[Rfam]
RNA sequence: AGAUGAGAGAUACACCCCGCUCACAGGGGACUGUGGGUGAAACCCGGGCCGGGGCCUCCCCAGCUUCGUCCUGGUCGUGCCUCGCGCACACAAUCGGAGCCCUCGGCUUCGGAUCUCCUCACCGAUCGGA
Numbered sequence: 001a002g003a004u005g006a007g008a009g010a011u012a013c014a015c016c017c018c019g020c021u022c023a024c025a026g027g028g029g030a031c032u033g034u035g036g037g038u039g040a041a042a043c044c045c046g047g048g049c050c051g052g053g054g055c056c057u058c059c060c061c062a063g064c065u066u067c068g069u070c071c072u073g074g075u076c077g078u079g080c081c082u083c084g085c086g087c088a089c090a091c092a093a094u095c096g097g098a099g100c101c102c103u104c105g106g107c108u109u110c111g112g113a114u115c116u117c118c119u120c121a122c123c124g125a126u127c128g129g130a
Stems, first nucleotide, its partner, number of pairs: 004121004009117002018039009044074005050068006077089004094113002097110003101106001122129002
Dot-bracket structure: ...((((.((.......(((((((((....)))))))))....(((((.((((((.......)))))).)))))..((((.....))))....((.(((.(....).))).))..))))))((....)).
RNA: Streptomyces RNA 5676